[Rfam]
Annotation:
A member of the RNA family "Burkholderia sRNA 11" from Caballeronia sp. SBC1, 212 nucleotides long. Rfam links the family to the GO term bacterial biofilm matrix. By type it is a small RNA. On this family, see Yoder-Himes et al., Proc Natl Acad Sci U S A 2009: "Mapping the Burkholderia cenocepacia niche response via high-throughput sequencing". Taxonomically the source falls in Caballeronia (Bacteria, Betaproteobacteria, Burkholderiales, Burkholderiaceae).
RNA sequence: AUCUCUUCGCUAAGGAGCUGCUUAUGCGAAAACUCACGGCCACUUUUAUAGUAGGCCUGAUAGGGCUAAUCGCGCUGUCCGUGUCGAGCACGGCUGUCGCAUGUAGCGAUACUGCGGAUUCGACGCAGUCGACGCCAAAGUAACUGCUAGCCCGAAUGUGCCGGCGCGCACACAAAAAAAGGCCUUCAUCACUGCGAUGAAGGCCUUUUACU
Dot-bracket structure: .(.(.(((((..(((.....)))..))))).)...).(((.(((.....)))..))).....((((.....((((...(((((.....)))))..).)))....(((......................................))).))))....((((......)))).....((((((((((((((.....))))))))))))))...